[Rfam]
RNA: HDV ribozyme from F. prausnitzii
RNA sequence: GGAGAGUGAACGCUUGGCCACCUCCCCGUGGUACUCUCUGGGCAACAGGUUGUUAAAACCUGGCUAAGAGCCGAGU
Numbered sequence: 001g002g003a004g005a006g007u008g009a010a011c012g013c014u015u016g017g018c019c020a021c022c023u024c025c026c027c028g029u030g031g032u033a034c035u036c037u038c039u040g041g042g043c044a045a046c047a048g049g050u051u052g053u054u055a056a057a058a059c060c061u062g063g064c065u066a067a068g069a070g071c072c073g074a075g076u
Base pairs, nucleotide, nucleotide: 001039002038003037004036005035006034007033020032021031022030046062047061048060049059050058